Rfam assigns this 89-nucleotide sequence from Peromyscus maniculatus to the family "mir-449 microRNA precursor family".
For this family Rfam cites "Small RNA expression and strain specificity in the rat" (Linsen et al., BMC Genomics, 2010).
Rfam links the family to the GO terms RISC complex and miRNA-mediated post-transcriptional gene silencing.
Pairs were carried over by alignment from the consensus structure, which was predicted with RNAalifold.
Rfam 15.1 lists 325 matches to the family in 192 species.
The organism belongs to Peromyscus maniculatus, within Eukaryota.
[Rfam]
RNA sequence: UGGGUGUGUCAGGCAGGCAGUGCAUUGCUAGCUGGCUGUUAGACUUCCAUCCCCACAGCUGCUCGCUGCACUACCCUCUGCCACACUCA
Numbered sequence: 001u002g003g004g005u006g007u008g009u010c011a012g013g014c015a016g017g018c019a020g021u022g023c024a025u026u027g028c029u030a031g032c033u034g035g036c037u038g039u040u041a042g043a044c045u046u047c048c049a050u051c052c053c054c055a056c057a058g059c060u061g062c063u064c065g066c067u068g069c070a071c072u073a074c075c076c077u078c079u080g081c082c083a084c085a086c087u088c089a
Stems, first nucleotide, its partner, number of pairs: 001089008010080004016075002019072006027066002030063003034059001042053001
Annotation: Clan: mir-34 clan.